[Rfam]
RNA sequence: UAUUAGGUUGCUGCAAAAGUAAUUGUGGGUCUUGCCAUUGAAAGUAAUAGCAACACCUGCAAUUACUUUUGCAGCAACCUAAUA
Numbered sequence: 001u002a003u004u005a006g007g008u009u010g011c012u013g014c015a016a017a018a019g020u021a022a023u024u025g026u027g028g029g030u031c032u033u034g035c036c037a038u039u040g041a042a043a044g045u046a047a048u049a050g051c052a053a054c055a056c057c058u059g060c061a062a063u064u065a066c067u068u069u070u071g072c073a074g075c076a077a078c079c080u081a082a083u084a
Stems, first nucleotide, its partner, number of pairs: 001084030032053004037048004
Dot-bracket structure: ((((((((((((((((((((((((((((((.((((.((((....)))).)))).))))))))))))))))))))))))))))))
Notes
Shown here is an 84-nucleotide sequence from Rhinopithecus roxellana, a member of the family "mir-548 microRNA precursor family". Pairs were carried over by alignment from the consensus structure, which was predicted with WAR. A reference for the family is Witten et al. (2010), "Ultra-high throughput sequencing-based small RNA discovery and discrete statistical biomarker analysis in a collection of cervical tumours and matched controls", BMC Biol. The family has 11 seed sequences and 3,009 matches in Rfam 15.1. The match comes from Rfam's covariance-model search (91 bits).